[Rfam]
RNA sequence: UAUAGGCUGCAUUGUUCGUAUGAUUAUUAAGUUUUAACCUUUAUGCUGUAAUAGGGAGUUUUAUAUAGAAGCUGGAAUGACAUGCCUUAUUCUCUUCGGACAAUAAGGACACGCAAGAUAGUUUCUGCGAACACCCACUUUGAGGAGUGGUGGUUUAAAACUUUCUUAUAAAGUACGGCAAACGCGGCUUACCU
Numbered sequence: 001u002a003u004a005g006g007c008u009g010c011a012u013u014g015u016u017c018g019u020a021u022g023a024u025u026a027u028u029a030a031g032u033u034u035u036a037a038c039c040u041u042u043a044u045g046c047u048g049u050a051a052u053a054g055g056g057a058g059u060u061u062u063a064u065a066u067a068g069a070a071g072c073u074g075g076a077a078u079g080a081c082a083u084g085c086c087u088u089a090u091u092c093u094c095u096u097c098g099g100a101c102a103a104u105a106a107g108g109a110c111a112c113g114c115a116a117g118a119u120a121g122u123u124u125c126u127g128c129g130a131a132c133a134c135c136c137a138c139u140u141u142g143a144g145g146a147g148u149g150g151u152g153g154u155u156u157a158a159a160a161c162u163u164u165c166u167u168a169u170a171a172a173g174u175a176c177g178g179c180a181a182a183c184g185c186g187g188c189u190u191a192c193c194u
Stems, first nucleotide, its partner, number of pairs: 003191008012181004017177003030162004035157003038153002054136003058132004067126007079114001085108007
Rfam assigns this 194-nucleotide sequence from Psychrobacillus insolitus to the family "6S / SsrS RNA". The match comes from Rfam's covariance-model search (82 bits). NCBI's taxonomy places the organism under Bacteria, Bacillati, Bacillota, Bacilli, Psychrobacillus. Rfam describes the family as follows. E. coli 6S RNA was the first non coding RNA to be sequenced, but its function was unknown until recently. It consists of 184 nucleotides that fold into an extended hairpin structure with a large single-stranded internal bulge. The 6S RNA specifically associates with RNA polymerase holoenzyme containing the sigma70 specificity factor. This interaction represses expression from a sigma70-dependent promoter during stationary phase. 6S RNA homologs have recently been identified in most bacterial genomes. Many Gram-positive species have two copies of 6S RNA. In Bacillus subtilis, both copies appear to interact with RNA polymerase holoenzyme containing the housekeeping sigma factor and be expressed during different stages of growth. In many proteobacteria, 6S RNA may be processed from a transcript encoding homologs of the E. coli YgfA protein which is a putative 5-formyltetrahydrofolate cycloligase activity. By type it is a non-coding RNA gene.